[Rfam]
RNA sequence: GGCUAAGUUCUGUGAUACACUCUGACUGUGAAUGUCUAUGCUAGUCAGUGCAUAACAGAACUUUGUCCCGG
Numbered sequence: 001g002g003c004u005a006a007g008u009u010c011u012g013u014g015a016u017a018c019a020c021u022c023u024g025a026c027u028g029u030g031a032a033u034g035u036c037u038a039u040g041c042u043a044g045u046c047a048g049u050g051c052a053u054a055a056c057a058g059a060a061c062u063u064u065g066u067c068c069c070g071g
Stems, first nucleotide, its partner, number of pairs: 001067003005063008018050004024046004
The record is a 71-nucleotide RNA sequence from Takifugu rubripes, which matches "mir-148/mir-152 microRNA precursor family" in Rfam. Rfam's curators put it in the seed alignment. Rfam links the family to the GO terms miRNA-mediated post-transcriptional gene silencing and RISC complex. The literature on the family includes a 2002 paper in Curr Biol by Lagos-Quintana et al., "Identification of tissue-specific microRNAs from mouse". Lineage of the source: Eukaryota > Euteleostomi > Actinopteri > Eupercaria > Takifugu.